[Rfam]
RNA sequence: GGCCCCUUCGGGGGCUUACCAAAGGCGGUAGUCCGCCGACAUAGCAAACGGAGACAGAAA
Numbered sequence: 001g002g003c004c005c006c007u008u009c010g011g012g013g014g015c016u017u018a019c020c021a022a023a024g025g026c027g028g029u030a031g032u033c034c035g036c037c038g039a040c041a042u043a044g045c046a047a048a049c050g051g052a053g054a055c056a057g058a059a060a
Stems, first nucleotide, its partner, number of pairs: 001016006024037005
Overview:
The record is a 60-nucleotide RNA, which matches "L2-Alphaproteobacteria ribosomal protein leader" in Rfam. A reference for the family is Eckert and Weinberg (2020), "Discovery of 20 novel ribosomal leader candidates in bacteria and archaea", BMC Microbiol.